A member of the RNA family "Small nucleolar RNA SNORA70" from Heterocephalus glaber, 131 nucleotides long. It is annotated as an H/ACA-box small nucleolar RNA. The match comes from Rfam's covariance-model search (104 bits). From the family's description: snoRNA U70 seems to be exclusive to mammals and is a member of the H/ACA class of snoRNA which contain H (ANANNA) and ACA box motifs. H/ACA box snoRNAs are involved in the conversion of uridines to pseudouridines (5-ribosyluracil) a constituent of structural RNAs (transfer, ribosomal, small nuclear, and small nucleolar). Gene Ontology terms of the family: nucleolus and RNA processing.
[Rfam]
Nucleotides: 131
Base pairs, nucleotide, nucleotide: 002049003048004047005046015044016043017042018041021038023036024035075118076117085107086106087105088104089103090102
Number, partner (000 for none) and nucleotide at each position: 001000c002049u003048g004047c005046a006000c007000u008000c009000a010000a011000g012000c013000c014000a015044a016043c017042u018041g019000g020000g021038u022000u023036c024035c025000u026000c027000u028000g029000c030000u031000g032000g033000u034000a035024g036023g037000u038021g039000c040000c041018c042017a043016g044015u045000g046005u047004g048003c049002a050000g051000u052000g053000g054000c055000u056000g057000c058000g059000a060000a061000c062000a063000g064000c065000a066000a067000u068000c069000u070000c071000c072000u073000u074000g075118g076117u077000a078000g079000u080000a081000u082000a083000u084000g085107u086106g087105g088104u089103c090102u091000g092000u093000u094000g095000c096000u097000u098000a099000u100000a101000u102090g103089g104088g105087c106086u107085g108000c109000c110000c111000u112000a113000a114000g115000a116000g117076a118075c119000a120000u121000u122000a123000g124000a125000g126000a127000c128000a129000c130000u131000g
Rfam 15.1 lists 5,173 matches to the family in 383 species. The base pairs follow the family's consensus structure, which was predicted with PFOLD.